[Rfam]
RNA sequence: AAGGCGGAAACCGAAAAGCCUUUAAUUAGAGUAGGAU
Number, nucleotide and partner (000 for none) at each position: 001a000002a021003g020004g019005c018006g000007g000008a000009a000010a000011c035012c034013g000014a000015a000016a000017a000018g005019c004020c003021u002022u000023u000024a000025a000026u000027u000028a000029g000030a000031g000032u000033a000034g012035g011036a000037u000
Background: Shown here is a 37-nucleotide sequence, a member of the family "DUF805b RNA". It is one of the family's seed sequences.